A member of the RNA family "TPP riboswitch aptamer (THI element)" from Rhizobium sp. Leaf371, 130 nucleotides long. The source organism's lineage runs through Bacteria, Pseudomonadati, Alphaproteobacteria, Hyphomicrobiales and Rhizobium. The base pairs follow the family's consensus structure, which is taken from published work.

[Rfam]
RNA sequence: GAUGCUCUAACGGGGUGCCUUUCCAACGUGACGAUCAUUCGUCUCGGGAAGACGGGCUGAGAGGCUGACAAGCCAACCCGCGGAACCUGAUCCGGUUUGCACCGGCGGAGGGAUUAGACGGCUCGCAAGC
Numbered sequence: 001g002a003u004g005c006u007c008u009a010a011c012g013g014g015g016u017g018c019c020u021u022u023c024c025a026a027c028g029u030g031a032c033g034a035u036c037a038u039u040c041g042u043c044u045c046g047g048g049a050a051g052a053c054g055g056g057c058u059g060a061g062a063g064g065c066u067g068a069c070a071a072g073c074c075a076a077c078c079c080g081c082g083g084a085a086c087c088u089g090a091u092c093c094g095g096u097u098u099g100c101a102c103c104g105g106c107g108g109a110g111g112g113a114u115u116a117g118a119c120g121g122c123u124c125g126c127a128a129g130c
Base pairs, nucleotide, nucleotide: 006118007117008116009115010114011080012079013078014077017057018056019055020054064073065072066071086111087110088109092105093104094103095102